RNA sequence: AAUGAAUGAUGACAAAAUGUUUCGGUCCCAGAUGACAUGGAAUGAUUCCAUUUAAUCUACAUUCUGACAUU
Numbered sequence: 001a002a003u004g005a006a007u008g009a010u011g012a013c014a015a016a017a018u019g020u021u022u023c024g025g026u027c028c029c030a031g032a033u034g035a036c037a038u039g040g041a042a043u044g045a046u047u048c049c050a051u052u053u054a055a056u057c058u059a060c061a062u063u064c065u066g067a068c069a070u071u
Stems, first nucleotide, its partner, number of pairs: 001071004

Shown here is a 71-nucleotide RNA from Pardalotus punctatus, a member of the family "Small nucleolar RNA SNORD73". The family's RNA type in Rfam is C/D-box small nucleolar RNA. On this family, see Rebane et al., Gene 1998: "A novel snoRNA (U73) is encoded within the introns of the human and mouse ribosomal protein S3a genes".